Record summary:
The record is a 100-nucleotide RNA from Pseudomonas sp. SSM44, which matches "TPP riboswitch aptamer (THI element)" in Rfam. Gene Ontology term of the family: thiamine pyrophosphate binding. The match comes from Rfam's covariance-model search (74 bits). Taxonomically the source falls in Pseudomonas (Bacteria, Pseudomonadota, Pseudomonadales, Pseudomonadaceae). Rfam's curators write: Vitamin B(1) in its active form thiamin pyrophosphate (TPP) is an essential coenzyme that is synthesised by coupling of pyrimidine and thiazole moieties in bacteria.

[Rfam]
RNA sequence: CAAAUCUUGACGGGGUGCUGCCGCCAUUGUGGCAGCUGAGAUGAUACCCGUUGAACCUGAACCGGUUAGUACCGGCGUAGGAAUCGAGAUAUGUGCCUAC
Numbered sequence: 001c002a003a004a005u006c007u008u009g010a011c012g013g014g015g016u017g018c019u020g021c022c023g024c025c026a027u028u029g030u031g032g033c034a035g036c037u038g039a040g041a042u043g044a045u046a047c048c049c050g051u052u053g054a055a056c057c058u059g060a061a062c063c064g065g066u067u068a069g070u071a072c073c074g075g076c077g078u079a080g081g082a083a084u085c086g087a088g089a090u091a092u093g094u095g096c097c098u099a100c
Stems, first nucleotide, its partner, number of pairs: 006088005011050004016044001017036007056081004062075004